Description: The record is an 86-nucleotide RNA from Ornithorhynchus anatinus, which matches "mir-1420 microRNA precursor family" in Rfam. Taxonomically the source falls in Ornithorhynchus (Eukaryota, Eumetazoa, Craniata, Euteleostomi). Its family is annotated with RISC complex and miRNA-mediated post-transcriptional gene silencing in the Gene Ontology. The family's consensus secondary structure was predicted with RNAalifold.
RNA sequence: UCCCCAUCUUUGUCAAUUCGAUCAGCCUGCACUCUCUGGUUGUGUCAGAAGGAAAGUGCUUCCUGUUCGGAUAAACAGGCUGGGGU
Numbered sequence: 001u002c003c004c005c006a007u008c009u010u011u012g013u014c015a016a017u018u019c020g021a022u023c024a025g026c027c028u029g030c031a032c033u034c035u036c037u038g039g040u041u042g043u044g045u046c047a048g049a050a051g052g053a054a055a056g057u058g059c060u061u062c063c064u065g066u067u068c069g070g071a072u073a074a075a076c077a078g079g080c081u082g083g084g085g086u
Base pairs, nucleotide, nucleotide: 003084004083005082006081008079009078012076013075016072017071018070019069020068021067023065024064025063029059030058031057032056033055035053036052037051